This 139-nucleotide RNA from Castor canadensis belongs to the Rfam family "Small nucleolar RNA SNORA29". Gene Ontology terms of the family: RNA processing and nucleolus. Its Rfam clan is "SNORA20 clan". It scores 128 bits against the family's covariance model. About the family: ACA29 is a member of the H/ACA class of snoRNA that guide the sites of modification of uridines to pseudouridines. The organism belongs to Castor, within Eukaryota.
[Rfam]
RNA sequence: UUUCCCAUUUGACUACCGCAUUUUCUCCUAUAAUAUAUUUCAGUGGCUAUGCUAAUGAAAUAGAUUAAAGAUGCCAUGAUCUGAAGUGGGAGGAUUUUUCAGUGUCCUGUUUCUAUGUGAAAUGACUGAACAGAAAAUA
Numbered sequence: 001u002u003u004c005c006c007a008u009u010u011g012a013c014u015a016c017c018g019c020a021u022u023u024u025c026u027c028c029u030a031u032a033a034u035a036u037a038u039u040u041c042a043g044u045g046g047c048u049a050u051g052c053u054a055a056u057g058a059a060a061u062a063g064a065u066u067a068a069a070g071a072u073g074c075c076a077u078g079a080u081c082u083g084a085a086g087u088g089g090g091a092g093g094a095u096u097u098u099u100c101a102g103u104g105u106c107c108u109g110u111u112u113c114u115a116u117g118u119g120a121a122a123u124g125a126c127u128g129a130a131c132a133g134a135a136a137a138u139a
Stems, first nucleotide, its partner, number of pairs: 006057002016046004073126001075124002091114004